[Rfam]
RNA sequence: AUAGAGUGUUGAUGCAGAAGGUUGCCAAAAGCCUGAAAAAACAAGGUUUGCGGGUGUUUCUGCGGAGCGAUGUCCAGUUCAAGAAACCGGGCGACAA
Numbered sequence: 001a002u003a004g005a006g007u008g009u010u011g012a013u014g015c016a017g018a019a020g021g022u023u024g025c026c027a028a029a030a031g032c033c034u035g036a037a038a039a040a041a042c043a044a045g046g047u048u049u050g051c052g053g054g055u056g057u058u059u060c061u062g063c064g065g066a067g068c069g070a071u072g073u074c075c076a077g078u079u080c081a082a083g084a085a086a087c088c089g090g091g092c093g094a095c096a097a
Stems, first nucleotide, its partner, number of pairs: 014063003018059003025053002029049006071096004077092004

The family of this 97-nucleotide sequence from Anaerotignum neopropionicum is "S10-Clostridia ribosomal protein leader". The literature on the family includes a 2020 paper in BMC Microbiol by Eckert and Weinberg, "Discovery of 20 novel ribosomal leader candidates in bacteria and archaea". The organism belongs to Anaerotignum, within Bacteria.